This 91-nucleotide RNA sequence belongs to the Rfam family "Group II catalytic intron D1-D4-1". Rfam's curators write: Group II introns are found in rRNA, tRNA and mRNA of organelles in fungi, plants and protists, and also in mRNA in bacteria. Rfam 15.1 lists 2,508 matches to the family in 1,144 species.
[Rfam]
RNA sequence: UUUUUUUUACGAAAGAAGCGGAGUAAAGCUUGCCGUGAGAAGUCAGCAGACGCCAUAGUAGUGCAAUAGUCGAUAACGUUGCACGAAGGGC
Numbered sequence: 001u002u003u004u005u006u007u008u009a010c011g012a013a014a015g016a017a018g019c020g021g022a023g024u025a026a027a028g029c030u031u032g033c034c035g036u037g038a039g040a041a042g043u044c045a046g047c048a049g050a051c052g053c054c055a056u057a058g059u060a061g062u063g064c065a066a067u068a069g070u071c072g073a074u075a076a077c078g079u080u081g082c083a084c085g086a087a088g089g090g091c
Stems, first nucleotide, its partner, number of pairs: 001025001004021002007018002010015001042051003052091003061084006